[Rfam]
RNA sequence: UGCUUAUCGAGAAAGACCGAGGGAAGGGCCCUGAGACGUCUUAGCAACCUAAAACAAAAGGUGCUAAUUCCCAUUCCGUAAAUGGCGGAAGAAGAUAAGCG
Number, nucleotide and partner (000 for none) at each position: 001u101002g100003c099004u098005u097006a096007u095008c094009g000010a000011g000012a000013a042014a041015g040016a039017c038018c000019g000020a000021g031022g030023g029024a000025a000026g072027g071028g070029c023030c022031c021032u000033g000034a000035g000036a000037c000038g017039u016040c015041u014042u013043a065044g064045c063046a062047a000048c061049c060050u057051a000052a000053a000054a000055c000056a000057a050058a000059a000060g049061g048062u046063g045064c044065u043066a000067a000068u000069u093070c028071c027072c026073a000074u090075u089076c088077c087078g086079u085080a000081a000082a000083u000084g000085g079086c078087g077088g076089a075090a074091g000092a000093a069094g008095a007096u006097a005098a004099g003100c002101g001
Shown here is a 101-nucleotide RNA from Aquiflexum balticum, a member of the family "SAM riboswitch aptamer (S box leader)". The organism belongs to Aquiflexum balticum, within Bacteria.